[Rfam]
RNA sequence: CAGCAGGUGCGAAUCCUGUCCGGCUAAUCGAUCGCUCAGCCGGAAGCAGCCAGAGCGGCGAAGGAGGUAACAAAUUCGUUGAAGUACUCUGCGUAAAGGUCACCUUGGGUGAUCGAGCGAACGCGUAGGCCGAAACGUGA
Numbered sequence: 001c002a003g004c005a006g007g008u009g010c011g012a013a014u015c016c017u018g019u020c021c022g023g024c025u026a027a028u029c030g031a032u033c034g035c036u037c038a039g040c041c042g043g044a045a046g047c048a049g050c051c052a053g054a055g056c057g058g059c060g061a062a063g064g065a066g067g068u069a070a071c072a073a074a075u076u077c078g079u080u081g082a083a084g085u086a087c088u089c090u091g092c093g094u095a096a097a098g099g100u101c102a103c104c105u106u107g108g109g110u111g112a113u114c115g116a117g118c119g120a121a122c123g124c125g126u127a128g129g130c131c132g133a134a135a136c137g138u139g140a
Stems, first nucleotide, its partner, number of pairs: 020043005051091005056081006066071001098114006118132002